[Rfam]
RNA sequence: GGAAUAAUAGGGUGUAAAAAGAACGUCUUUUAUUGGGAUGCAAAUGUGUUAUUUAAAUAAUAAAUAAGGAUACUGGAAAUAUGAUUGAGAUAAACGAGGAUCAUGAGAUGAGUUAAUUUGGUGCGUCCGAGUGGACUCGAACCACCGACCCCCACCA
Numbered sequence: 001g002g003a004a005u006a007a008u009a010g011g012g013u014g015u016a017a018a019a020a021g022a023a024c025g026u027c028u029u030u031u032a033u034u035g036g037g038a039u040g041c042a043a044a045u046g047u048g049u050u051a052u053u054u055a056a057a058u059a060a061u062a063a064a065u066a067a068g069g070a071u072a073c074u075g076g077a078a079a080u081a082u083g084a085u086u087g088a089g090a091u092a093a094a095c096g097a098g099g100a101u102c103a104u105g106a107g108a109u110g111a112g113u114u115a116a117u118u119u120g121g122u123g124c125g126u127c128c129g130a131g132u133g134g135a136c137u138c139g140a141a142c143c144a145c146c147g148a149c150c151c152c153c154a155c156c157a
Base pairs, nucleotide, nucleotide: 024046025045026044027040029038030037063080119154120153121152123150128147129146131145132144133143134142